RNA sequence: UGAAAGAAUGAUGUUGAAGGAACUCGGCAAUUAUACCUGUAACUUCGGAAGAAGGGUAACCUGCUUUUAGGUAACUAUUAGUAGGUGGCACAAAAUAGGGAGUAGCGACUGUUUAUUAAAAACACAGGACUCUGCAACACGUAAGUGGAAGUAUAGGGUCUGACGCCUGCCCGGUGCUGGAAGGUUAAUAAGAGGGUUGCAAGCUCUGAAUUGAAGCCCCAGUAAACGGCGGCCGUAACACUGACGGUCCUAAGGUAGCGAAAUUCCUUGUCGGUAAGUUCCGACCCGCACGAAUGGCGUAACGAUUUCUCCACUGUCUCCAACAUCAAUUCA
Numbered sequence: 001u002g003a004a005a006g007a008a009u010g011a012u013g014u015u016g017a018a019g020g021a022a023c024u025c026g027g028c029a030a031u032u033a034u035a036c037c038u039g040u041a042a043c044u045u046c047g048g049a050a051g052a053a054g055g056g057u058a059a060c061c062u063g064c065u066u067u068u069a070g071g072u073a074a075c076u077a078u079u080a081g082u083a084g085g086u087g088g089c090a091c092a093a094a095a096u097a098g099g100g101a102g103u104a105g106c107g108a109c110u111g112u113u114u115a116u117u118a119a120a121a122a123c124a125c126a127g128g129a130c131u132c133u134g135c136a137a138c139a140c141g142u143a144a145g146u147g148g149a150a151g152u153a154u155a156g157g158g159u160c161u162g163a164c165g166c167c168u169g170c171c172c173g174g175u176g177c178u179g180g181a182a183g184g185u186u187a188a189u190a191a192g193a194g195g196g197u198u199g200c201a202a203g204c205u206c207u208g209a210a211u212u213g214a215a216g217c218c219c220c221a222g223u224a225a226a227c228g229g230c231g232g233c234c235g236u237a238a239c240a241c242u243g244a245c246g247g248u249c250c251u252a253a254g255g256u257a258g259c260g261a262a263a264u265u266c267c268u269u270g271u272c273g274g275u276a277a278g279u280u281c282c283g284a285c286c287c288g289c290a291c292g293a294a295u296g297g298c299g300u301a302a303c304g305a306u307u308u309c310u311c312c313a314c315u316g317u318c319u320c321c322a323a324c325a326u327c328a329a330u331u332c333a
Stems, first nucleotide, its partner, number of pairs: 001333004009328008018319003034058005043048001059086007068077003087091001099312004104307002106304002110124003127161008135151001138147003164299004169230003174227002176223005183218003190211001194207003198203001231249006250254001260286001270285005